The record is a 92-nucleotide RNA from Pedobacter psychrophilus, which matches "Flavo-1 RNA" in Rfam. A search with the family's covariance model found it, with a score of 48 bits.

[Rfam]
RNA sequence: UUUUUGCGUUAGGGAUUGAAACGGCAUCCUUUUUUUGCAAAUGGCCAUAUUGCAGAUGGCAAAAAAAGAUACAGAGCAAAGCCCGCCCGAAC
Numbered sequence: 001u002u003u004u005u006g007c008g009u010u011a012g013g014g015a016u017u018g019a020a021a022c023g024g025c026a027u028c029c030u031u032u033u034u035u036u037g038c039a040a041a042u043g044g045c046c047a048u049a050u051u052g053c054a055g056a057u058g059g060c061a062a063a064a065a066a067a068g069a070u071a072c073a074g075a076g077c078a079a080a081g082c083c084c085g086c087c088c089g090a091a092c
Stems, first nucleotide, its partner, number of pairs: 012084003016080002022074001026070003032065007
Dot-bracket structure: ...........(((.((....(...(((...(((((((....................)))))))..)))...)....)).)))........